MIR8024 microRNA precursor family: a 94-nucleotide RNA sequence from Solanum tuberosum. It scores 64 bits against the family's covariance model. Lineage of the source: Eukaryota > Tracheophyta > Magnoliopsida > Solaneae > Solanum. Pairs were carried over by alignment from the consensus structure, which was predicted with RNAalifold.
RNA sequence: UUAAAGAAUUUGAAGACCUCAACUUGCAGAUUUGCAUACUUGGAAAAUUUGAAGACUUUAGCUUGCAUACUUGGAAGAUUUGAAGACCUCAACU
Number, nucleotide and partner (000 for none) at each position: 001u092002u091003a000004a089005a000006g087007a000008a000009u084010u083011u082012g081013a080014a079015g000016a000017c000018c000019u074020c073021a072022a000023c000024u000025u000026g000027c000028a000029g000030a000031u000032u000033u067034g066035c065036a064037u000038a000039c000040u061041u060042g059043g058044a057045a000046a000047a000048u000049u000050u000051g000052a000053a000054g000055a000056c000057u044058u043059u042060a041061g040062c000063u000064u036065g035066c034067a033068u000069a000070c000071u000072u021073g020074g019075a000076a000077g000078a000079u014080u013081u012082g011083a010084a009085g000086a000087c006088c000089u004090c000091a002092a001093c000094u000